[Rfam]
RNA sequence: UUUAGAACUCUAGAUAUUGGUUGAACACUGAACAGUGUCUAGGUUGUAGGACAGAUUCGAACUUAUCCGUUGUUGCUAUAAAUUGGACUUGAAAACGGUCUUUUUAAAUCUUGGACUCCACAUGAAAGUUUUAGGCCUAUGUCUUAUCUUUCCAUC
Numbered sequence: 001u002u003u004a005g006a007a008c009u010c011u012a013g014a015u016a017u018u019g020g021u022u023g024a025a026c027a028c029u030g031a032a033c034a035g036u037g038u039c040u041a042g043g044u045u046g047u048a049g050g051a052c053a054g055a056u057u058c059g060a061a062c063u064u065a066u067c068c069g070u071u072g073u074u075g076c077u078a079u080a081a082a083u084u085g086g087a088c089u090u091g092a093a094a095a096c097g098g099u100c101u102u103u104u105u106a107a108a109u110c111u112u113g114g115a116c117u118c119c120a121c122a123u124g125a126a127a128g129u130u131u132u133a134g135g136c137c138u139a140u141g142u143c144u145u146a147u148c149u150u151u152c153c154a155u156c
Base pairs, nucleotide, nucleotide: 003154005152006151007150009146012144013143014142015141016140017139019137020136021134022133023132024131025130027129028128029127035123036122037121042118043117045115048112049111050110051109054105055104059100060099062098063097072088073087074086
A member of the RNA family "MIR2912 microRNA precursor family" from Populus tomentosa, 156 nucleotides long. Taxonomically the source falls in Populus (Eukaryota, Magnoliopsida, Mesangiospermae, Salicaceae). A search with the family's covariance model found it, with a score of 119 bits.